RNA sequence: UGGAGGACUGAGAAGGUUGGGCAGCUGUAUACCAGUGCUACCUCAACUGGUUAUUGCCUCCAAGAUCAUAUCUCAGGUACAGUAGCUCAGCCUGAAAGCCUUUGGAGGUAGGCUGUGUGCUGUAUGUG
Numbered sequence: 001u002g003g004a005g006g007a008c009u010g011a012g013a014a015g016g017u018u019g020g021g022c023a024g025c026u027g028u029a030u031a032c033c034a035g036u037g038c039u040a041c042c043u044c045a046a047c048u049g050g051u052u053a054u055u056g057c058c059u060c061c062a063a064g065a066u067c068a069u070a071u072c073u074c075a076g077g078u079a080c081a082g083u084a085g086c087u088c089a090g091c092c093u094g095a096a097a098g099c100c101u102u103u104g105g106a107g108g109u110a111g112g113c114u115g116u117g118u119g120c121u122g123u124a125u126g127u128g
Base pairs, nucleotide, nucleotide: 002061003060004059005058006057015048016047017046018045019043020042021041023039024038025037081121082120083119086117089114090113091112099108100107
This 128-nucleotide RNA from Anguilla anguilla belongs to the Rfam family "Small nucleolar RNA SNORA47".
The base pairs follow the family's consensus structure, which was predicted with WAR.
Taxonomically the source falls in Anguilla (Eukaryota, Deuterostomia, Teleostomi, Neopterygii).
The match comes from Rfam's covariance-model search (60 bits).
The family's RNA type in Rfam is H/ACA-box small nucleolar RNA.